[Rfam]
RNA: 6S / SsrS RNA
Organism: Erwinia tracheiphila
RNA sequence: UUUUCUCUGAGAUGUUUGCAAGCGGGUCAGCCCCCUGAGCCGAUAUUUCAUACCAACAGAGUGUGUCACUCUGUGACCUGUGUGCAUGCCCGGCCCGUCCGGGAAGCCUGAUGGUUGCGACGGCAUACUCACCUUGAACCAAGGGUUCAAGGGUUACAGCCUGCGGCGGCAUCUCGGAGAUUCU
Numbered sequence: 001u002u003u004u005c006u007c008u009g010a011g012a013u014g015u016u017u018g019c020a021a022g023c024g025g026g027u028c029a030g031c032c033c034c035c036u037g038a039g040c041c042g043a044u045a046u047u048u049c050a051u052a053c054c055a056a057c058a059g060a061g062u063g064u065g066u067c068a069c070u071c072u073g074u075g076a077c078c079u080g081u082g083u084g085c086a087u088g089c090c091c092g093g094c095c096c097g098u099c100c101g102g103g104a105a106g107c108c109u110g111a112u113g114g115u116u117g118c119g120a121c122g123g124c125a126u127a128c129u130c131a132c133c134u135u136g137a138a139c140c141a142a143g144g145g146u147u148c149a150a151g152g153g154u155u156a157c158a159g160c161c162u163g164c165g166g167c168g169g170c171a172u173c174u175c176g177g178a179g180a181u182u183c184u
Base pairs, nucleotide, nucleotide: 004180005179006178007177008176009175010174011173012172013171014170015169017168018167019166032153033152034151036149037148038147039146040145041144059130060129061128063126064125065124066123067122070120072119073118074117075116076115077114078113084107085106089103090102091101092100093099